ZMP/ZTP riboswitch aptamer (pfl RNA motif): an 85-nucleotide sequence from Microbacterium allomyrinae.
[Rfam]
RNA sequence: UCGGGAUGUCGCGACUGGCGUUGAGGUGGACUACCACCGGGGAGCGACGGACUACGGCAUUCGACCGCACGCCUGGGCCGAUGUG
Dot-bracket structure: ..((..((((((..(([[[[[....((((....))))..))..))))))..))........((.((..]]]]]..)).)).....